A member of the RNA family "TPP riboswitch aptamer (THI element)" from Brevibacterium linens, 104 nucleotides long.

RNA sequence: AGAGGAGUUCGCGGGAGCCUCCCAACGAGGCUGAGAGGGCGUAAGAGCCGACCGUCAGACCUGAUGCGGAUCAUGCCGCCGGAGGGAGAAGCUUUGAACGUCAU
Numbered sequence: 001a002g003a004g005g006a007g008u009u010c011g012c013g014g015g016a017g018c019c020u021c022c023c024a025a026c027g028a029g030g031c032u033g034a035g036a037g038g039g040c041g042u043a044a045g046a047g048c049c050g051a052c053c054g055u056c057a058g059a060c061c062u063g064a065u066g067c068g069g070a071u072c073a074u075g076c077c078g079c080c081g082g083a084g085g086g087a088g089a090a091g092c093u094u095u096g097a098a099c100g101u102c103a104u
Stems, first nucleotide, its partner, number of pairs: 008090003011055004017031005038049003060085003066079004
Dot-bracket structure: .......(((((((..(((((.....)))))......(((......)))..))))....(((...((((......))))...)))..)))..............
Lineage of the source: Bacteria > Bacillati > Actinomycetes > Brevibacteriaceae > Brevibacterium.